Background:
The record is an 88-nucleotide RNA from Pseudomonas agarici, which matches "gyrA RNA" in Rfam. The family's consensus secondary structure is taken from published work. A search with the family's covariance model found it, with a score of 72 bits.

RNA sequence: UCGUAAGUCGUUGCCAGGCAUCAGGUCGGCGACGGCAAGCUUCGUUCGUCCCCUAUGUGAUGUGACGAAGUUUCACCAGAAAAAGGAA
Numbered sequence: 001u002c003g004u005a006a007g008u009c010g011u012u013g014c015c016a017g018g019c020a021u022c023a024g025g026u027c028g029g030c031g032a033c034g035g036c037a038a039g040c041u042u043c044g045u046u047c048g049u050c051c052c053c054u055a056u057g058u059g060a061u062g063u064g065a066c067g068a069a070g071u072u073u074c075a076c077c078a079g080a081a082a083a084a085g086g087a088a
Base pairs, nucleotide, nucleotide: 007036008035009034010033011032012031013030014029015028018026019025037073038072039071040070041069042068043067044066045065046064047062048061049060050059051057
Dot-bracket structure: ......(((((((((..((.....)).)))))))))(((((((((((((((.....).)))).))))))))))...............